[Rfam]
RNA sequence: UCAUACUUUAAAGCGCCCGGACUGCUUGUUAAUGGACGCAACGAAAGAGCAGUUGACGAGGAGGAGGUUUAUCGAUACAUCGGCGGAUGCCUCCCGGUUGUUGAACGUCACAACCGUAAAAUUCAGGUUAAAACAUAGAGGUGACUCUGUGAACAAAAGCUUGAAUAUUGACGUCC
Numbered sequence: 001u002c003a004u005a006c007u008u009u010a011a012a013g014c015g016c017c018c019g020g021a022c023u024g025c026u027u028g029u030u031a032a033u034g035g036a037c038g039c040a041a042c043g044a045a046a047g048a049g050c051a052g053u054u055g056a057c058g059a060g061g062a063g064g065a066g067g068u069u070u071a072u073c074g075a076u077a078c079a080u081c082g083g084c085g086g087a088u089g090c091c092u093c094c095c096g097g098u099u100g101u102u103g104a105a106c107g108u109c110a111c112a113a114c115c116g117u118a119a120a121a122u123u124c125a126g127g128u129u130a131a132a133a134c135a136u137a138g139a140g141g142u143g144a145c146u147c148u149g150u151g152a153a154c155a156a157a158a159g160c161u162u163g164a165a166u167a168u169u170g171a172c173g174u175c176c
Base pairs, nucleotide, nucleotide: 020054021053022052023051024050025049026048027047029045063094064093065092066091067090072083073082074081075080095116096115097114098113099112100111121166122165123164124163125162126161127160134151135150136149137148138147139146140145
Overview
This 176-nucleotide RNA sequence from Alteribacillus bidgolensis belongs to the Rfam family "glmS glucosamine-6-phosphate activated ribozyme aptamer". On this family, see Winkler et al., Nature 2004: "Control of gene expression by a natural metabolite-responsive ribozyme". Rfam links the family to the GO terms regulation of gene expression and catalytic activity. This entry contains a glucosamine-6-phosphate activated ribozyme that is found in the mRNA for GlmS. GlmS is an enzyme that uses fructose-6-phosphate and glutamine to generate glucosamine-6-phosphate. NCBI's taxonomy places the organism under Bacteria, Bacillati, Bacilli, Bacillaceae, Alteribacillus. A search with the family's covariance model found it, with a score of 132 bits. By type it is a riboswitch.